[Rfam]
RNA: Alphaproteobacteria transfer-messenger RNA
RNA sequence: CCCCUGGAUUUCCGCGCGGCAGCGGCCUAUAUCGGGAGCGUCAUCCUCGGAUGACUAUGGUGAUAAACGGCAUGUGGAAUAAGCGUUGCGGACCCGGGGGCAGUGCCCGGCGUCUCCACCAGCAACUACCGGCCCUGGAUCGUGGGGCGGCGCUUGCGGGGACGAAACAGGCUCGACGCGCGUGGUAAAGCCAUGUCUUUUGCCCGGCAUUGUACCGCCGUCAUCGGGCUAUAUCACAAGUGCCAACGAUAACGGUCGCGAGACCGUGGCGCUCGCUGCCUAACAAUAGGUAAGCGCGGUCCGGGGGGAACCGGGCAACAGAAUCCCCCCACU
Numbered sequence: 001c002c003c004c005u006g007g008a009u010u011u012c013c014g015c016g017c018g019g020c021a022g023c024g025g026c027c028u029a030u031a032u033c034g035g036g037a038g039c040g041u042c043a044u045c046c047u048c049g050g051a052u053g054a055c056u057a058u059g060g061u062g063a064u065a066a067a068c069g070g071c072a073u074g075u076g077g078a079a080u081a082a083g084c085g086u087u088g089c090g091g092a093c094c095c096g097g098g099g100g101c102a103g104u105g106c107c108c109g110g111c112g113u114c115u116c117c118a119c120c121a122g123c124a125a126c127u128a129c130c131g132g133c134c135c136u137g138g139a140u141c142g143u144g145g146g147g148c149g150g151c152g153c154u155u156g157c158g159g160g161g162a163c164g165a166a167a168c169a170g171g172c173u174c175g176a177c178g179c180g181c182g183u184g185g186u187a188a189a190g191c192c193a194u195g196u197c198u199u200u201u202g203c204c205c206g207g208c209a210u211u212g213u214a215c216c217g218c219c220g221u222c223a224u225c226g227g228g229c230u231a232u233a234u235c236a237c238a239a240g241u242g243c244c245a246a247c248g249a250u251a252a253c254g255g256u257c258g259c260g261a262g263a264c265c266g267u268g269g270c271g272c273u274c275g276c277u278g279c280c281u282a283a284c285a286a287u288a289g290g291u292a293a294g295c296g297c298g299g300u301c302c303g304g305g306g307g308g309a310a311c312c313g314g315g316c317a318a319c320a321g322a323a324u325c326c327c328c329c330c331a332c333u
Stems, first nucleotide, its partner, number of pairs: 040055005059204005069197006084182003088179003094110005111164007205220004210231001212229001215227002297313004303330006
Dot-bracket structure: .......................................(((((......)))))...(((((.....((((((.........(((.(((...(((((.......)))))(((((((........................................)))))))............)))))).........))))))..)))))((((.[.[..[[)))).....]].].].................................................................[[[[..((((((.]]]]...........))))))...